[Rfam]
RNA: Alphaproteobacterial sRNA ar45
RNA sequence: GCCCAAAGUCGCACGUGCCUGUGGGUGUCCGCCGGUCCCUCGUUAUGGUGAGGGUCUCGGUAAGGUACCUGGAACUAACCCCUCCAGUCGGUCUGACGGCCAACCGCCAUUCCGAGGACAUCUUGAAGCAACGACGGUGCGGGCCUUU
Numbered sequence: 001g002c003c004c005a006a007a008g009u010c011g012c013a014c015g016u017g018c019c020u021g022u023g024g025g026u027g028u029c030c031g032c033c034g035g036u037c038c039c040u041c042g043u044u045a046u047g048g049u050g051a052g053g054g055u056c057u058c059g060g061u062a063a064g065g066u067a068c069c070u071g072g073a074a075c076u077a078a079c080c081c082c083u084c085c086a087g088u089c090g091g092u093c094u095g096a097c098g099g100c101c102a103a104c105c106g107c108c109a110u111u112c113c114g115a116g117g118a119c120a121u122c123u124u125g126a127a128g129c130a131a132c133g134a135c136g137g138u139g140c141g142g143g144c145c146u147u148u
Stems, first nucleotide, its partner, number of pairs: 001144004008135004016130003023123008031061005038053005069087005088115004094109002097106003